[Rfam]
RNA sequence: AAACAGCCCCAUAUGUUUUGAUUCUUUGGCAGUUUUGGCCCCCCAAGGCAAAAUAAAAAUAAAAAAUUUGACACAUGGCACCUCACUUAGGGUGCCACGUCAGCGUUGACCGAGUCAACACUGAACUGGGGGUUCAAAACUGCCAAAGAAUCAAUACAUAGGGGGCUGAUU
Numbered sequence: 001a002a003a004c005a006g007c008c009c010c011a012u013a014u015g016u017u018u019u020g021a022u023u024c025u026u027u028g029g030c031a032g033u034u035u036u037g038g039c040c041c042c043c044c045a046a047g048g049c050a051a052a053a054u055a056a057a058a059a060u061a062a063a064a065a066a067u068u069u070g071a072c073a074c075a076u077g078g079c080a081c082c083u084c085a086c087u088u089a090g091g092g093u094g095c096c097a098c099g100u101c102a103g104c105g106u107u108g109a110c111c112g113a114g115u116c117a118a119c120a121c122u123g124a125a126c127u128g129g130g131g132g133u134u135c136a137a138a139a140c141u142g143c144c145a146a147a148g149a150a151u152c153a154a155u156a157c158a159u160a161g162g163g164g165g166c167u168g169a170u171u
Base pairs, nucleotide, nucleotide: 001171002170004168005167006166007165008164012160013159014158015157016156018154019153020152021151022150023149024148025147026146027145028144029143030142031141032140033139034138035137036136037135038134040132041131042130043129044128045127073100074099076097077096078095079094080093081092082091